Shown here is a 100-nucleotide RNA sequence from Gallaecimonas xiamenensis, a member of the family "Tryptophan operon leader". By type it is a cis-regulatory leader. The match comes from Rfam's covariance-model search (54 bits). Its family is annotated with tryptophan biosynthetic process and transcriptional attenuation by ribosome in the Gene Ontology. For this family Rfam cites "Attenuation in amino acid biosynthetic operons" (Kolter and Yanofsky, Annu Rev Genet, 1982).
RNA sequence: CUUUGGUGGUGGUGGCAUUCCUGGCGUCAGGCGGGCUAGCUGCACCUUGUUGUUUGUGAACCAAACAUCCAGAGCCCGCUGAGAAAGCGGGCUUUUUUAU
Number, nucleotide and partner (000 for none) at each position: 001c000002u000003u000004u000005g000006g000007u000008g000009g043010u042011g041012g040013u000014g037015g036016c035017a000018u033019u000020c031021c030022u029023g028024g000025c000026g000027u000028c023029a022030g021031g020032c000033g018034g000035g016036c015037u014038a000039g000040c012041u011042g010043c009044a000045c000046c000047u000048u000049g000050u000051u000052g000053u000054u000055u000056g000057u000058g000059a000060a000061c000062c000063a000064a000065a000066c000067a000068u000069c000070c000071a000072g000073a093074g092075c091076c090077c089078g088079c087080u085081g000082a000083g000084a000085a080086a000087g079088c078089g077090g076091g075092c074093u073094u000095u000096u000097u000098u000099a000100u000

Rfam describes the family as follows. At least 6 amino acid operons are known to be regulated by attenuation. In each a leader sequence of 150-200 bp is found upstream of the first gene in the operon. This leader sequence can assume two different secondary structures known as the terminator and the anti-terminator structure. In each case the leader also codes for very short peptide sequence that is rich in the end product amino acid of the operon. The terminator structure is recognised as a termination signal for RNA polymerase and the operon is not transcribed. This structure forms when the cell has an excess of the regulatory amino acid and ribosome movement over the leader transcript is not impeded. When there is a deficiency of the charged tRNA of the regulatory amino acid the ribosome translating the leader peptide stalls and the antiterminator structure can form. This allows RNA polymerase to transcribe the operon. In the Rfam alignment the consensus structure is of the terminator structure.